[Rfam]
RNA sequence: AAAGCAGGGAUUGUGUGUAUCGGCGUAGUGCUACUCAAUGCACUCUGAUCCGAAAGAUUUCCCUGCAAUAUCCAUUUGGGGAAGGUGGGCAGUUGAGUUUCAUUUUAACCCAUUGAAAUCCUCAACAAUCAUCUUCCCCACAUCU
Dot-bracket structure: ...(((((((....((((((.................))))))................)))))))...........(((((((((((...((((...........................))))..)))))))))))......